[Rfam]
RNA sequence: CGGGGGCCUCCUUUACUCGGAUCGUCCGGCACGUUCCUGCCGGUGAAGGGACCGCAUC
Numbered sequence: 001c002g003g004g005g006g007c008c009u010c011c012u013u014u015a016c017u018c019g020g021a022u023c024g025u026c027c028g029g030c031a032c033g034u035u036c037c038u039g040c041c042g043g044u045g046a047a048g049g050g051a052c053c054g055c056a057u058c
Stems, first nucleotide, its partner, number of pairs: 009050007026043006
msiK RNA: a 58-nucleotide RNA from Streptomyces solincola. The family has 120 seed sequences and 1,374 matches in Rfam 15.1. The source organism's lineage runs through Bacteria, Actinomycetota, Actinomycetes, Kitasatosporales and Streptomyces.